[Rfam]
RNA sequence: UACAAUCUUUGGGGAAUGGUGAAAUUCCAUAUCGGCGGUAUAGUCCGCGCGGCAAAAAAUGCCUGACAGAGUGUGAUUCUCUGACCGACGGUAAAAGUCCGGAUGAAAAAAGAGGUGU
Numbered sequence: 001u002a003c004a005a006u007c008u009u010u011g012g013g014g015a016a017u018g019g020u021g022a023a024a025u026u027c028c029a030u031a032u033c034g035g036c037g038g039u040a041u042a043g044u045c046c047g048c049g050c051g052g053c054a055a056a057a058a059a060u061g062c063c064u065g066a067c068a069g070a071g072u073g074u075g076a077u078u079c080u081c082u083g084a085c086c087g088a089c090g091g092u093a094a095a096a097g098u099c100c101g102g103a104u105g106a107a108a109a110a111a112g113a114g115g116u117g118u
Stems, first nucleotide, its partner, number of pairs: 006113005017029003031098002033087002035048004043085002051063003067083005089101003

Record summary
FMN riboswitch aptamer (RFN element): a 118-nucleotide RNA sequence from Candidatus Apopatosoma intestinale. The match comes from Rfam's covariance-model search (95 bits). Taxonomically the source falls in Candidatus Apopatosoma (Bacteria, Bacillati, Bacillota, Clostridia).